[Rfam]
RNA sequence: AGCACUCGCGCUUGGACCUGCUGUUCCCGGUGAGGCUGCUGUUCCCCUCUGGAGGUUUUGACCUUCAAACUCAAGGCAUCGGUUUUCGAUGCCCUUUU
Numbered sequence: 001a002g003c004a005c006u007c008g009c010g011c012u013u014g015g016a017c018c019u020g021c022u023g024u025u026c027c028c029g030g031u032g033a034g035g036c037u038g039c040u041g042u043u044c045c046c047c048u049c050u051g052g053a054g055g056u057u058u059u060g061a062c063c064u065u066c067a068a069a070c071u072c073a074a075g076g077c078a079u080c081g082g083u084u085u086u087c088g089a090u091g092c093c094c095u096u097u098u
Stems, first nucleotide, its partner, number of pairs: 001040004007034001009032001012030004050067007075093006082087001